[Rfam]
RNA sequence: AACGGUUGCAACGGCCCCUCCUCCUCCCUGGGUCGUCGCACGCGGUGAUGGCCUCCUCCUCCCUGCCGUCGCCGCAUCCCAUACGCGGCCCCUCCUCCUCCCUGGGCCGGCGUUACGC
Numbered sequence: 001a002a003c004g005g006u007u008g009c010a011a012c013g014g015c016c017c018c019u020c021c022u023c024c025u026c027c028c029u030g031g032g033u034c035g036u037c038g039c040a041c042g043c044g045g046u047g048a049u050g051g052c053c054u055c056c057u058c059c060u061c062c063c064u065g066c067c068g069u070c071g072c073c074g075c076a077u078c079c080c081a082u083a084c085g086c087g088g089c090c091c092c093u094c095c096u097c098c099u100c101c102c103u104g105g106g107c108c109g110g111c112g113u114u115a116c117g118c
Base pairs, nucleotide, nucleotide: 007040008039009038011036012035013034014033015032016031017030043074044073045072046071047070048069049068050067051066052065083113084112085111086109087108088107089106090105091104
Rfam assigns this 118-nucleotide RNA sequence from Paracoccus shanxieyensis to the family "Alphaproteobacterial ar14". Rfam's curators write: Smr14C2 was renamed NfeR1 (Nodule Formation Efficiency RNA) highly expressed in salt stress and during the symbiotic interaction on legume roots. The family's RNA type in Rfam is small RNA. The organism belongs to Paracoccus, within Bacteria. The match comes from Rfam's covariance-model search (62 bits). For this family Rfam cites "A survey of sRNA families in alpha-proteobacteria" (del Val et al., RNA Biol, 2012).